RNA sequence: GGCUAUGAGGAGCCUCACGAUAGCUGAGAUGUGAUGACGGGCAUACUGGCCGAGC
Number, nucleotide and partner (000 for none) at each position: 001g050002g000003c048004u000005a000006u000007g000008a044009g000010g042011a000012g000013c000014c000015u037016c036017a035018c000019g000020a000021u000022a000023g032024c031025u000026g000027a000028g000029a000030u000031g024032u023033g000034a000035u017036g016037a015038c000039g000040g000041g000042c010043a000044u008045a000046c000047u000048g003049g000050c001051c000052g000053a000054g000055c000